[Rfam]
RNA sequence: UGAAAUAAAGGUGAUGACGUUCACCUAUUAAAUGAUCGUAAGCAAAUGACCUGAUGACGUCUACUAAACU
Numbered sequence: 001u002g003a004a005a006u007a008a009a010g011g012u013g014a015u016g017a018c019g020u021u022c023a024c025c026u027a028u029u030a031a032a033u034g035a036u037c038g039u040a041a042g043c044a045a046a047u048g049a050c051c052u053g054a055u056g057a058c059g060u061c062u063a064c065u066a067a068a069c070u
Stems, first nucleotide, its partner, number of pairs: 010025004016061006034051001036049004